[Rfam]
RNA sequence: GGUAUGGAGUCCUGUGGCAUCCAUGAGACCACCUUCAACUCCAUCAUGAAGUGUGACGUGGACAUCCGAAAGGACCUGUAUGCC
Number, nucleotide and partner (000 for none) at each position: 001g084002g083003u082004a081005u080006g079007g000008a077009g076010u074011c073012c072013u071014g000015u068016g067017g066018c000019a000020u062021c061022c060023a059024u058025g057026a000027g000028a000029c000030c055031a054032c053033c051034u050035u049036c048037a047038a000039c000040u000041c000042c000043a000044u000045c000046a000047u037048g036049a035050a034051g033052u000053g032054u031055g030056a000057c025058g024059u023060g022061g021062a020063c000064a000065u000066c017067c016068g015069a000070a000071a013072g012073g011074a010075c000076c009077u008078g000079u006080a005081u004082g003083c002084c001
Annotation:
This 84-nucleotide sequence from Bos taurus belongs to the Rfam family "mir-3533 microRNA precursor family". The sequence is in the family's curated seed alignment. Gene Ontology terms of the family: RISC complex and miRNA-mediated post-transcriptional gene silencing. Rfam 15.1 lists 359 matches to the family in 309 species. The source organism's lineage runs through Eukaryota, Craniata, Laurasiatheria, Pecora and Bos.